[Rfam]
RNA sequence: UUGUGUGUAGGAGAGUUUUAUUAAAUCAGUGGAAACAAGGAAACACUUGAUUUAAUAAAAUUAUUC
Numbered sequence: 001u002u003g004u005g006u007g008u009a010g011g012a013g014a015g016u017u018u019u020a021u022u023a024a025a026u027c028a029g030u031g032g033a034a035a036c037a038a039g040g041a042a043a044c045a046c047u048u049g050a051u052u053u054a055a056u057a058a059a060a061u062u063a064u065u066c
Stems, first nucleotide, its partner, number of pairs: 014062005021055002026050003029046003
Description: The family of this 66-nucleotide sequence from Prochlorococcus marinus is "Cyano-1 RNA". Lineage of the source: Bacteria > Bacillati > Prochlorococcaceae > Prochlorococcus > Prochlorococcus marinus. The family's RNA type in Rfam is small RNA.